[Rfam]
SAM riboswitch aptamer (S box leader): a 126-nucleotide RNA sequence from Patiriisocius marinus.

RNA sequence: AUGUUAUCAAGAAAGGUGGAGGGAUUAGACCCUACGAAACCUUAGCAACCCUCGAUGUCAUACCGUAAUUUCGGUUUCGAGAAGGUGCUAAAUUCUACUAAAACGAAAGUUAAAGAUAGAUAACGA
Numbered sequence: 001a002u003g004u005u006a007u008c009a010a011g012a013a014a015g016g017u018g019g020a021g022g023g024a025u026u027a028g029a030c031c032c033u034a035c036g037a038a039a040c041c042u043u044a045g046c047a048a049c050c051c052u053c054g055a056u057g058u059c060a061u062a063c064c065g066u067a068a069u070u071u072c073g074g075u076u077u078c079g080a081g082a083a084g085g086u087g088c089u090a091a092a093u094u095c096u097a098c099u100a101a102a103a104c105g106a107a108a109g110u111u112a113a114a115g116a117u118a119g120a121u122a123a124c125g126a
Base pairs, nucleotide, nucleotide: 002125003124004123005122006121007120008119013043014042015041016040017039021032022031023030026097027096028095029094044089045088046087047086049085050084051081052080053079054078093118098115099114102111103110
Its Rfam clan is "SAM clan".